[Rfam]
RNA sequence: CCCGCGGCUAGACGGAAAGACCCCGUGAACCUUUACUAUAGCUUCACGCUGGACUCUGACCUUACUUGUGUAGGAUAGCUGGGAGACUUUGAAGCGGUGACGCCAGUCAUCGUGGAGUCAACCUUGAAAUACCAGCCUGGUAAUGUUGGGGUUCUAACUUAGAUCCAUUAUCUGGAUUGAGGACAGCGUGUGGUGGGUAGUUUGACUGGGGCGGUCUCCUCCCAAAGAGUAACGGAGGAGUGCGAAGGUGCCCUCAGCGCGGUCGGACAUCGCGCAUUGAGUAUAAUGGCAAAAGGGCGCUUGACUGUGAGAGUCACAACUCGAGCAGGUGCGAAAGCAGGUCAUAGUGAUCCGGUGGUUCUGUAUGGAAGGGCCAUCGCUCAACGGAUAAAAGGUACUCCGGGGAUAACAGGCUGAUACCGCCCAAGAGUUCAUAUCGACGGCGGUGUUUGGCACCUCGAUGUCGGCUCAUCACAUCCUGGGGCUGAAGCCGGUCCCAAGGGUAUGGCUGUUCGCCAUUUAAAGUGGUACGCGAGCUGGGUUUAGAACGUCGUGAGACAGUUCGGUCCCUAUCUGCCGUGGGCGUU
Numbered sequence: 001c002c003c004g005c006g007g008c009u010a011g012a013c014g015g016a017a018a019g020a021c022c023c024c025g026u027g028a029a030c031c032u033u034u035a036c037u038a039u040a041g042c043u044u045c046a047c048g049c050u051g052g053a054c055u056c057u058g059a060c061c062u063u064a065c066u067u068g069u070g071u072a073g074g075a076u077a078g079c080u081g082g083g084a085g086a087c088u089u090u091g092a093a094g095c096g097g098u099g100a101c102g103c104c105a106g107u108c109a110u111c112g113u114g115g116a117g118u119c120a121a122c123c124u125u126g127a128a129a130u131a132c133c134a135g136c137c138u139g140g141u142a143a144u145g146u147u148g149g150g151g152u153u154c155u156a157a158c159u160u161a162g163a164u165c166c167a168u169u170a171u172c173u174g175g176a177u178u179g180a181g182g183a184c185a186g187c188g189u190g191u192g193g194u195g196g197g198u199a200g201u202u203u204g205a206c207u208g209g210g211g212c213g214g215u216c217u218c219c220u221c222c223c224a225a226a227g228a229g230u231a232a233c234g235g236a237g238g239a240g241u242g243c244g245a246a247g248g249u250g251c252c253c254u255c256a257g258c259g260c261g262g263u264c265g266g267a268c269a270u271c272g273c274g275c276a277u278u279g280a281g282u283a284u285a286a287u288g289g290c291a292a293a294a295g296g297g298c299g300c301u302u303g304a305c306u307g308u309g310a311g312a313g314u315c316a317c318a319a320c321u322c323g324a325g326c327a328g329g330u331g332c333g334a335a336a337g338c339a340g341g342u343c344a345u346a347g348u349g350a351u352c353c354g355g356u357g358g359u360u361c362u363g364u365a366u367g368g369a370a371g372g373g374c375c376a377u378c379g380c381u382c383a384a385c386g387g388a389u390a391a392a393a394g395g396u397a398c399u400c401c402g403g404g405g406a407u408a409a410c411a412g413g414c415u416g417a418u419a420c421c422g423c424c425c426a427a428g429a430g431u432u433c434a435u436a437u438c439g440a441c442g443g444c445g446g447u448g449u450u451u452g453g454c455a456c457c458u459c460g461a462u463g464u465c466g467g468c469u470c471a472u473c474a475c476a477u478c479c480u481g482g483g484g485c486u487g488a489a490g491c492c493g494g495u496c497c498c499a500a501g502g503g504u505a506u507g508g509c510u511g512u513u514c515g516c517c518a519u520u521u522a523a524a525g526u527g528g529u530a531c532g533c534g535a536g537c538u539g540g541g542u543u544u545a546g547a548a549c550g551u552c553g554u555g556a557g558a559c560a561g562u563u564c565g566g567u568c569c570c571u572a573u574c575u576g577c578c579g580u581g582g583g584c585g586u587u
Stems, first nucleotide, its partner, number of pairs: 001583008010575003014570002022404004027400002029396005035201004042193002045190004051154010062143005068137001078136005085119003094113008158181003162178006204216004217239006240385001242342002248300006254280002257275006281290002305328004311322003330339003353379007361372002413454003417451001418448007428438002465540001466538004470532001471529005478503002481498006505519005546564004550559003

The record is a 587-nucleotide part of an RNA from Ketobacter alkanivorans, which matches "Bacterial large subunit ribosomal RNA" in Rfam. The literature on the family includes a 2001 paper in Science by Yusupov et al., "Crystal structure of the ribosome at 5.5 A resolution". It scores 2861 bits against the family's covariance model.